[Rfam]
RNA sequence: UUUGAAUCUUGAUAAAGAAAAUAAAAAGAUGCGAGCGAAUAGCGUGCAUUUGUUAAAAAUAAUAAAUUGAAUAAUAGUUCCAAGUGGUUUAUAUUUGGACAAAAAAUUAGACCGUAGUUUCAAGCUGC
Numbered sequence: 001u002u003u004g005a006a007u008c009u010u011g012a013u014a015a016a017g018a019a020a021a022u023a024a025a026a027a028g029a030u031g032c033g034a035g036c037g038a039a040u041a042g043c044g045u046g047c048a049u050u051u052g053u054u055a056a057a058a059a060u061a062a063u064a065a066a067u068u069g070a071a072u073a074a075u076a077g078u079u080c081c082a083a084g085u086g087g088u089u090u091a092u093a094u095u096u097g098g099a100c101a102a103a104a105a106a107u108u109a110g111a112c113c114g115u116a117g118u119u120u121c122a123a124g125c126u127g128c
Base pairs, nucleotide, nucleotide: 006030007029008028009027010026033121039115040114042112048063049062050061077100078099080098081097082096083095084094085093086092
The record is a 128-nucleotide RNA from Finegoldia magna, which matches "Streptococcus sRNA SpR18" in Rfam.
The family has 23 seed sequences and 63 matches in Rfam 15.1.
On this family, see Mann et al., PLoS Pathog 2012: "Control of virulence by small RNAs in Streptococcus pneumoniae".
NCBI's taxonomy places the organism under Bacteria, Bacillota, Tissierellia, Tissierellales, Finegoldia magna.